[Rfam]
RNA sequence: GCGGGGCGCCCCUAGGGUUCCGCAGCCGAUCCGGCUGGCCUGGUCCGAGAGGGGAGGCGGCGCCGCAGUGUUGCGGGGCCGUUCCACGGCGGGAGAAAAGCCCGGGAGGC
Numbered sequence: 001g002c003g004g005g006g007c008g009c010c011c012c013u014a015g016g017g018u019u020c021c022g023c024a025g026c027c028g029a030u031c032c033g034g035c036u037g038g039c040c041u042g043g044u045c046c047g048a049g050a051g052g053g054g055a056g057g058c059g060g061c062g063c064c065g066c067a068g069u070g071u072u073g074c075g076g077g078g079c080c081g082u083u084c085c086a087c088g089g090c091g092g093g094a095g096a097a098a099a100g101c102c103c104g105g106g107a108g109g110c
Stems, first nucleotide, its partner, number of pairs: 007056001009054004015046002020043002022040001023037006057082005063076004085105001087108001091103003
Dot-bracket structure: ......(.((((..((...(((((((((...))))))..).)).))....)))).)(((((.((((......)))).)))))..(.[...(((.......))).)..]..
RNA: Guanidine-I riboswitch aptamer
Organism: Nocardioides baekrokdamisoli